[Rfam]
MIR1120/MIR1122 microRNA precursor family: an 87-nucleotide RNA sequence from Hordeum vulgare. Pairs were carried over by alignment from the consensus structure, which was predicted with RNAalifold. The literature on the family includes a 2007 paper in Genome Biol by Yao et al., "Cloning and characterization of microRNAs from wheat (Triticum aestivum L.)".
RNA sequence: AUACUCCCUCUGUCCCACAAUAUAAGAGUGUUUUUUGUAUUAGUAUAGUGUUAAAAACGCUCUUAUAUUACGGGACGGAGGGAGUAU
Numbered sequence: 001a002u003a004c005u006c007c008c009u010c011u012g013u014c015c016c017a018c019a020a021u022a023u024a025a026g027a028g029u030g031u032u033u034u035u036u037g038u039a040u041u042a043g044u045a046u047a048g049u050g051u052u053a054a055a056a057a058c059g060c061u062c063u064u065a066u067a068u069u070a071c072g073g074g075a076c077g078g079a080g081g082g083a084g085u086a087u
Stems, first nucleotide, its partner, number of pairs: 003085003007081005013075004019069017037051005